[Rfam]
RNA sequence: GGCCCAAUGCCACAUCUGAUGCAUUGACCAGAGAUGCUAUGGUUGGGCAUAGAUCAAGUCAAGUUUGAUAUGUUAAAAGUUGAUAGAAACCUAUGGAUUAGCUCUUUAUUUUUCAUCCAUGAAGCCAAUUUAUGUGAUUACAUUG
Numbered sequence: 001g002g003c004c005c006a007a008u009g010c011c012a013c014a015u016c017u018g019a020u021g022c023a024u025u026g027a028c029c030a031g032a033g034a035u036g037c038u039a040u041g042g043u044u045g046g047g048c049a050u051a052g053a054u055c056a057a058g059u060c061a062a063g064u065u066u067g068a069u070a071u072g073u074u075a076a077a078a079g080u081u082g083a084u085a086g087a088a089a090c091c092u093a094u095g096g097a098u099u100a101g102c103u104c105u106u107u108a109u110u111u112u113u114c115a116u117c118c119a120u121g122a123a124g125c126c127a128a129u130u131u132a133u134g135u136g137a138u139u140a141c142a143u144u145g
Stems, first nucleotide, its partner, number of pairs: 002048007009040001013036005021028001073137003077133001086126001092121002095118004
Shown here is a 145-nucleotide RNA from Cocos nucifera, a member of the family "Small nucleolar RNA snoR2/U65". It scores 69 bits against the family's covariance model. For this family Rfam cites "Localization and processing from a polycistronic precursor of novel snoRNAs in maize" (Shaw et al., J Cell Sci, 1998). Taxonomically the source falls in Cocos (Eukaryota, Streptophytina, Petrosaviidae, Cocoseae).